Record summary
MIR6217 microRNA precursor family: a 228-nucleotide RNA from Miscanthus lutarioriparius.

RNA sequence: UGGCCGCAGAAUAAAUUAUUCUGUGGCCACUUUGAGUUACGAUAAUUACUAUACUAAUUUACGAGAUUAUGGUAACUCCCUUAUAAGUGAUUUAAUGUAGCAGUAUGAUAAGUAUCAUCUUGAAUUAUAGUAACCCAUAUAUCGUAAAUGUGCAUUAUCAUUAUCGUAAAUUGGUACAAAUAUUAUCGUAAAUCAAGAUGGUCAUAGAAUAAAUUAUUCUAUGGACCA
Numbered sequence: 001u002g003g004c005c006g007c008a009g010a011a012u013a014a015a016u017u018a019u020u021c022u023g024u025g026g027c028c029a030c031u032u033u034g035a036g037u038u039a040c041g042a043u044a045a046u047u048a049c050u051a052u053a054c055u056a057a058u059u060u061a062c063g064a065g066a067u068u069a070u071g072g073u074a075a076c077u078c079c080c081u082u083a084u085a086a087g088u089g090a091u092u093u094a095a096u097g098u099a100g101c102a103g104u105a106u107g108a109u110a111a112g113u114a115u116c117a118u119c120u121u122g123a124a125u126u127a128u129a130g131u132a133a134c135c136c137a138u139a140u141a142u143c144g145u146a147a148a149u150g151u152g153c154a155u156u157a158u159c160a161u162u163a164u165c166g167u168a169a170a171u172u173g174g175u176a177c178a179a180a181u182a183u184u185a186u187c188g189u190a191a192a193u194c195a196a197g198a199u200g201g202u203c204a205u206a207g208a209a210u211a212a213a214u215u216a217u218u219c220u221a222u223g224g225a226c227c228a
Stems, first nucleotide, its partner, number of pairs: 001228003004224003008220007016212014031197003037191010050178001052176011065165003069161003074155001081147003087142003092137001093132002096129005